Rfam assigns this 111-nucleotide RNA sequence from Gossypium stocksii to the family "Plastid-psbA-1 3UTR RNA". From the family's description: Plastid psbA-1 is a non-coding RNA (ncRNA) present in plastids. It was identified in inverted repeat sequences in the 3 prime untranslate region (3UTR) of photosystem II quinone-binding protein (psbA). The literature on the family includes a 2023 paper in Plant Commun by Richter et al., "Retrograde signaling in plants: A critical review focusing on the GUN pathway and beyond". Pairs were carried over by alignment from the consensus structure, which was predicted with LocARNA. The match comes from Rfam's covariance-model search (61 bits). The family's RNA type in Rfam is cis-regulatory element.
RNA sequence: UUUCUAUUAAAAAAAUAGAAAAAAAUGUAAAGAAAAGAAAGACCACUAAAUCGAAAUAAAGGAGCAAUAACCACUUUCUUGUUCUAGCAAGAGUGUUGGUAUUGCUCCUUU
Numbered sequence: 001u002u003u004c005u006a007u008u009a010a011a012a013a014a015a016u017a018g019a020a021a022a023a024a025a026u027g028u029a030a031a032g033a034a035a036a037g038a039a040a041g042a043c044c045a046c047u048a049a050a051u052c053g054a055a056a057u058a059a060a061g062g063a064g065c066a067a068u069a070a071c072c073a074c075u076u077u078c079u080u081g082u083u084c085u086a087g088c089a090a091g092a093g094u095g096u097u098g099g100u101a102u103u104g105c106u107c108c109u110u111u
Stems, first nucleotide, its partner, number of pairs: 003019005058111012073096002076093005